Rfam assigns this 89-nucleotide sequence from Aerococcus sp. HMSC10H05 to the family "SAM-III riboswitch aptamer (SMK box)". Its family is annotated with regulation of translational initiation and methionine adenosyltransferase activity in the Gene Ontology. On this family, see Fuchs et al., Proc Natl Acad Sci U S A 2007: "S-adenosylmethionine directly inhibits binding of 30S ribosomal subunits to the SMK box translational riboswitch RNA". The match comes from Rfam's covariance-model search (58 bits).
RNA sequence: GGACGUUACAAUAAAUUUUUCCCGAUAGGGUUUGCUUAGGCAAAAAUUCCUUGUAACCAUAAAAUUUAUAUUUUGGGGGAAACAAUAUG
Numbered sequence: 001g002g003a004c005g006u007u008a009c010a011a012u013a014a015a016u017u018u019u020u021c022c023c024g025a026u027a028g029g030g031u032u033u034g035c036u037u038a039g040g041c042a043a044a045a046a047u048u049c050c051u052u053g054u055a056a057c058c059a060u061a062a063a064a065u066u067u068a069u070a071u072u073u074u075g076g077g078g079g080a081a082a083c084a085a086u087a088u089g
Base pairs, nucleotide, nucleotide: 019081020080021079022078023077027051028050029049031044032043033042034041035040057076058075